[Rfam]
RNA sequence: CCAUCAUCACCAUCACCCUGACUAGUCUUUCAGGCGAUGUGUGCUGGAAGACGGUUUUUUAAUCUUCCAGUGGCGCGCAGAAUGCAAGAGAGAGCCCUCGGAAGAUUUCUUCCGAGGGUUUUUUUUU
Numbered sequence: 001c002c003a004u005c006a007u008c009a010c011c012a013u014c015a016c017c018c019u020g021a022c023u024a025g026u027c028u029u030u031c032a033g034g035c036g037a038u039g040u041g042u043g044c045u046g047g048a049a050g051a052c053g054g055u056u057u058u059u060u061a062a063u064c065u066u067c068c069a070g071u072g073g074c075g076c077g078c079a080g081a082a083u084g085c086a087a088g089a090g091a092g093a094g095c096c097c098u099c100g101g102a103a104g105a106u107u108u109c110u111u112c113c114g115a116g117g118g119u120u121u122u123u124u125u126u127u
Stems, first nucleotide, its partner, number of pairs: 008043003011039004017034005044070008089124016

This 127-nucleotide sequence from Serratia proteamaculans belongs to the Rfam family "Histidine operon leader". Rfam describes the family as follows. At least 6 amino acid operons are known to be regulated by attenuation. In each a leader sequence of 150-200 bp is found upstream of the first gene in the operon. This leader sequence can assume two different secondary structures known as the terminator and the anti-terminator structure. The family's RNA type in Rfam is cis-regulatory leader.